RNA sequence: GGUGAUGUAGCUCAGACGGUUAGAGCGCGGCACUCAUAAUGCUGAGGUCGGUGGUUCGAUUCCACCCAUCACCA
Numbered sequence: 001g002g003u004g005a006u007g008u009a010g011c012u013c014a015g016a017c018g019g020u021u022a023g024a025g026c027g028c029g030g031c032a033c034u035c036a037u038a039a040u041g042c043u044g045a046g047g048u049c050g051g052u053g054g055u056u057c058g059a060u061u062c063c064a065c066c067c068a069u070c071a072c073c074a
Base pairs, nucleotide, nucleotide: 001073002072003071004070005069006068007067010026011025012024013023028044029043030042031041032040050066051065052064053063054062
The family of this 74-nucleotide RNA sequence from Fontimonas thermophila is "tRNA". The base pairs follow the family's consensus structure, which is taken from published work. A search with the family's covariance model found it, with a score of 73 bits.